[Rfam]
RNA sequence: AUAAGCUCCCGGACAGCGCCUGGUAAGCUUGCUUGGCGAGACGAACAGACAUUGGACGGGGCAACAGGUAUGAGCACGCAGGCGUAUGCGCCGGAGUGCGAACCUGUCAGAAUUGCCGGAGUGCGAUGCACGGAGCAAUUCGCAGCUUAU
Number, nucleotide and partner (000 for none) at each position: 001a150002u149003a148004a147005g146006c145007u144008c060009c059010c058011g057012g000013a000014c000015a053016g052017c000018g050019c000020c048021u047022g046023g000024u035025a034026a033027g032028c000029u000030u000031g000032c027033u026034u025035g024036g000037c000038g000039a000040g000041a000042c000043g000044a000045a000046c022047a021048g020049a000050c018051a000052u016053u015054g000055g000056a000057c011058g010059g009060g008061g000062c000063a000064a107065c106066a105067g104068g103069u000070a000071u102072g000073a000074g099075c098076a097077c096078g000079c000080a000081g092082g091083c090084g089085u000086a000087u000088g000089c084090g083091c082092c081093g000094g000095a000096g077097u076098g075099c074100g000101a000102a071103c068104c067105u066106g065107u064108c000109a000110g141111a140112a139113u138114u137115g136116c135117c000118g000119g000120a000121g131122u130123g129124c128125g000126a000127u000128g124129c123130a122131c121132g000133g000134a000135g116136c115137a114138a113139u112140u111141c110142g000143c000144a007145g006146c005147u004148u003149a002150u001
The family of this 150-nucleotide RNA from Blautia hydrogenotrophica is "Clostridiales-1 RNA". The source organism's lineage runs through Bacteria, Bacillati, Bacillota, Lachnospirales and Blautia hydrogenotrophica. The family's consensus secondary structure is taken from published work.